[Rfam]
RNA sequence: GGGUCAAUGAUGAACAUAAAUGUCCGAGGAUGCUGAGUGACUCAUUGCAGAUGUCAAUCUGAGAUCC
Numbered sequence: 001g002g003g004u005c006a007a008u009g010a011u012g013a014a015c016a017u018a019a020a021u022g023u024c025c026g027a028g029g030a031u032g033c034u035g036a037g038u039g040a041c042u043c044a045u046u047g048c049a050g051a052u053g054u055c056a057a058u059c060u061g062a063g064a065u066c067c
Base pairs, nucleotide, nucleotide: 001067002066003065004064005063
Rfam assigns this 67-nucleotide RNA sequence from Loxodonta africana to the family "Small nucleolar RNA SNORD109A".
A reference for the family is Runte et al. (2001), "The IC-SNURF-SNRPN transcript serves as a host for multiple small nucleolar RNA species and as an antisense RNA for UBE3A", Hum Mol Genet.
Its Rfam clan is "SNORD74 clan".
NCBI's taxonomy places the organism under Eukaryota, Bilateria, Eutheria, Afrotheria, Loxodonta.
By type it is a C/D-box small nucleolar RNA.
Humans have two copies of the SNORD109 gene, SNORD109A and SNORD109B.